Shown here is an 84-nucleotide RNA, a member of the family "sRNA-Xcc1".
A reference for the family is Schmidtke et al. (2011), "Genome-wide transcriptome analysis of the plant pathogen Xanthomonas identifies sRNAs with putative virulence functions", Nucleic Acids Res.
RNA sequence: UGCCGGGUGUGCGGCGAAUACAAGACCCGCAAGGGAAAUAAGCCCGCCGUCUCCGUACGGUCUUUAGCGCCCGGCGCCCAUUCU
Numbered sequence: 001u002g003c004c005g006g007g008u009g010u011g012c013g014g015c016g017a018a019u020a021c022a023a024g025a026c027c028c029g030c031a032a033g034g035g036a037a038a039u040a041a042g043c044c045c046g047c048c049g050u051c052u053c054c055g056u057a058c059g060g061u062c063u064u065u066a067g068c069g070c071c072c073g074g075c076g077c078c079c080a081u082u083c084u
Stems, first nucleotide, its partner, number of pairs: 001076009013044003017039001026035003046061005